[Rfam]
A member of the RNA family "mir-2060 microRNA precursor family" from Branchiostoma floridae, 94 nucleotides long. Its family is annotated with miRNA-mediated post-transcriptional gene silencing and RISC complex in the Gene Ontology. Rfam 15.1 lists 3,696 matches to the family in 4 species.
RNA sequence: GUAUGGUUGUGUAUAGAUGAUGUUCAGCACCAAAGAUAGGUCUGUUAACCUGUGUGUGGAUGGCAUUCAGCACCAAGGCCAUGCUUGAUUGUGU
Numbered sequence: 001g002u003a004u005g006g007u008u009g010u011g012u013a014u015a016g017a018u019g020a021u022g023u024u025c026a027g028c029a030c031c032a033a034a035g036a037u038a039g040g041u042c043u044g045u046u047a048a049c050c051u052g053u054g055u056g057u058g059g060a061u062g063g064c065a066u067u068c069a070g071c072a073c074c075a076a077g078g079c080c081a082u083g084c085u086u087g088a089u090u091g092u093g094u
Stems, first nucleotide, its partner, number of pairs: 005084001008081002018075002021072004026067002030063003034055001036053006